This 104-nucleotide sequence from Paenibacillus selenitireducens belongs to the Rfam family "Glycine riboswitch aptamer". It scores 72 bits against the family's covariance model.
RNA sequence: AUGAUCGUAUUGGGAGAGAUUACCUUACUAGUAACGCUAGGUAACGCCGAAGGAGUAAGCUUGAAUCAAGUGAAUCUCUCAGGCAAAAGGACCAUUACGGGACG
Numbered sequence: 001a002u003g004a005u006c007g008u009a010u011u012g013g014g015a016g017a018g019a020u021u022a023c024c025u026u027a028c029u030a031g032u033a034a035c036g037c038u039a040g041g042u043a044a045c046g047c048c049g050a051a052g053g054a055g056u057a058a059g060c061u062u063g064a065a066u067c068a069a070g071u072g073a074a075u076c077u078c079u080c081a082g083g084c085a086a087a088a089g090g091a092c093c094a095u096u097a098c099g100g101g102a103c104g
Stems, first nucleotide, its partner, number of pairs: 006099004011094003020044006046084003049080002053078003059071002